[Rfam]
RNA: Nucleoid-associated noncoding RNA 4 (CssrE)
Organism: Escherichia coli
RNA sequence: GGUCGGAUAAGGCGUUUACCGCAUCCGACAUCAAUGCCUGAUGCGACGCUUGCCGCGUCUUAUCAGGCC
Numbered sequence: 001g002g003u004c005g006g007a008u009a010a011g012g013c014g015u016u017u018a019c020c021g022c023a024u025c026c027g028a029c030a031u032c033a034a035u036g037c038c039u040g041a042u043g044c045g046a047c048g049c050u051u052g053c054c055g056c057g058u059c060u061u062a063u064c065a066g067g068c069c
Stems, first nucleotide, its partner, number of pairs: 002029007011020002036068008045059005